[Rfam]
RNA: transfer-messenger RNA
Organism: Acetivibrio thermocellus
RNA sequence: GGGGGCGUAUUGGUUUCGACGGGAUUGUUGAAGCUUGAGUAGCGGGUAGAGGAUUCUCGUUGGCCUCUUUAAAAAACGAGAAACUAAAAUAAACGCUAACGAAGAUAAUUACGCUUUAGCUGCUGCCUAAUAUAGGCAGCCCGUCAGUCCAGGGUUCCUGCGCCUUGGGUAGCUGGCGUCAUUAAGUCAGGCCUUUUGAGUGGGAAGGUUAAACUCUAGAACUGUCACAGUGGUAGCCUUGAGCUGUGAUGGAUUUUAAAGGCUACUGAUAUCCAAAGCCUGCCCAUGGGCGUUGGGUUGAGGGAAUUUUUAAAACAUGGGCUGCACCCGGAGAAGCUCUUGUGGAUACGAUUUCGGACAGGGGUUCGACUCCCCUCGCCUCCACCA
Numbered sequence: 001g002g003g004g005g006c007g008u009a010u011u012g013g014u015u016u017c018g019a020c021g022g023g024a025u026u027g028u029u030g031a032a033g034c035u036u037g038a039g040u041a042g043c044g045g046g047u048a049g050a051g052g053a054u055u056c057u058c059g060u061u062g063g064c065c066u067c068u069u070u071a072a073a074a075a076a077c078g079a080g081a082a083a084c085u086a087a088a089a090u091a092a093a094c095g096c097u098a099a100c101g102a103a104g105a106u107a108a109u110u111a112c113g114c115u116u117u118a119g120c121u122g123c124u125g126c127c128u129a130a131u132a133u134a135g136g137c138a139g140c141c142c143g144u145c146a147g148u149c150c151a152g153g154g155u156u157c158c159u160g161c162g163c164c165u166u167g168g169g170u171a172g173c174u175g176g177c178g179u180c181a182u183u184a185a186g187u188c189a190g191g192c193c194u195u196u197u198g199a200g201u202g203g204g205a206a207g208g209u210u211a212a213a214c215u216c217u218a219g220a221a222c223u224g225u226c227a228c229a230g231u232g233g234u235a236g237c238c239u240u241g242a243g244c245u246g247u248g249a250u251g252g253a254u255u256u257u258a259a260a261g262g263c264u265a266c267u268g269a270u271a272u273c274c275a276a277a278g279c280c281u282g283c284c285c286a287u288g289g290g291c292g293u294u295g296g297g298u299u300g301a302g303g304g305a306a307u308u309u310u311u312a313a314a315a316c317a318u319g320g321g322c323u324g325c326a327c328c329c330g331g332a333g334a335a336g337c338u339c340u341u342g343u344g345g346a347u348a349c350g351a352u353u354u355c356g357g358a359c360a361g362g363g364g365u366u367c368g369a370c371u372c373c374c375c376u377c378g379c380c381u382c383c384a385c386c387a
Stems, first nucleotide, its partner, number of pairs: 001383007020356009033343002037339004043330005048068005057082001060079003119140005143192003147188001148169003152165004156205006222252007234265006267302001271298006279289001282322007360376005